Nucleotides: 083
Base pairs, nucleotide, nucleotide: 001082002081003080004079005078006077007076010025011024012023013022027043028042029041030040031039059075060074061073062072063071
Number, partner (000 for none) and nucleotide at each position: 001082g002081g003080g004079u005078a006077g007076g008000u009000a010025g011024c012023c013022u014000a015000g016000c017000g018000g019000c020000g021000a022013a023012g024011g025010c026000a027043g028042g029041g030040g031039u032000c033000u034000g035000u036000a037000a038000a039031a040030c041029c042028c043027u044000g045000a046000c047000a048000a049000g050000a051000g052000a053000a054000a055000c056000a057000g058000c059075g060074u061073g062072a063071g064000u065000u066000c067000g068000a069000g070000u071063c072062u073061c074060a075059c076007c077006c078005u079004g080003c081002c082001c083000a

Rfam assigns this 83-nucleotide RNA from Butyrivibrio sp. ob235 to the family "tRNA". Pairs were carried over by alignment from the consensus structure, which is taken from published work. Gene Ontology term of the family: triplet codon-amino acid adaptor activity. A search with the family's covariance model found it, with a score of 58 bits.